[Rfam]
RNA sequence: AUAUGUGAUGAUUUACAUGAAAUCUCAUUUAGCUGAUGGUUUGCUAUUGAGACUCGGAAAUCUGAUUUUC
Numbered sequence: 001a002u003a004u005g006u007g008a009u010g011a012u013u014u015a016c017a018u019g020a021a022a023u024c025u026c027a028u029u030u031a032g033c034u035g036a037u038g039g040u041u042u043g044c045u046a047u048u049g050a051g052a053c054u055c056g057g058a059a060a061u062c063u064g065a066u067u068u069u070c
Stems, first nucleotide, its partner, number of pairs: 023052005030046004
RNA: Small nucleolar RNA SNORD30